RNA sequence: GUGGCCCUCAAAUGUGGGAGCACUCUUCUGACGUCAAGUGGAAAGUGCUGCAACAUUUGAGUGUCAC
Number, nucleotide and partner (000 for none) at each position: 001g000002u000003g000004g064005c063006c000007c061008u060009c059010a058011a057012a056013u000014g054015u053016g000017g051018g000019a049020g048021c047022a046023c045024u044025c000026u043027u042028c041029u000030g000031a000032c000033g000034u000035c000036a000037a000038g000039u000040g000041g028042a027043a026044a024045g023046u022047g021048c020049u019050g000051c017052a000053a015054c014055a000056u012057u011058u010059g009060a008061g007062u000063g005064u004065c000066a000067c000
This 67-nucleotide RNA from Tupaia belangeri belongs to the Rfam family "mir-290 microRNA precursor family". A reference for the family is Houbaviy et al. (2003), "Embryonic stem cell-specific MicroRNAs", Dev Cell. Lineage of the source: Eukaryota > Craniata > Euteleostomi > Mammalia > Tupaia belangeri.